[Rfam]
RNA: Small nucleolar RNA SNORA25
Organism: Myotis lucifugus
RNA sequence: AGGUCAUUUCAGAGAGAGCUUGUGGAACCAAAACCAGGAGCUCUUAACACUGUGACUAAGGAUUGAAGUUCUCCAUAUGUAACUGUCACUCAAGAAUACUGUGUUUUCCCGAGGAGAUAAAAGA
Number, nucleotide and partner (000 for none) at each position: 001a000002g057003g056004u055005c054006a053007u052008u000009u000010c000011a000012g000013a000014g045015a044016g043017a042018g041019c040020u039021u038022g000023u037024g035025g034026a000027a000028c000029c000030a000031a000032a000033a000034c025035c024036a000037g023038g021039a020040g019041c018042u017043c016044u015045u014046a000047a000048c000049a000050c000051u000052g007053u006054g005055a004056c003057u002058a000059a000060g000061g000062a000063u000064u000065g000066a000067a000068g000069u000070u117071c116072u115073c114074c113075a000076u000077a107078u000079g000080u000081a000082a102083c101084u000085g099086u000087c000088a097089c000090u095091c000092a000093a000094g000095a090096a000097u088098a000099c085100u000101g083102u082103g000104u000105u000106u000107u077108c000109c000110c000111g000112a000113g074114g073115a072116g071117a070118u000119a000120a000121a000122a000123g000124a000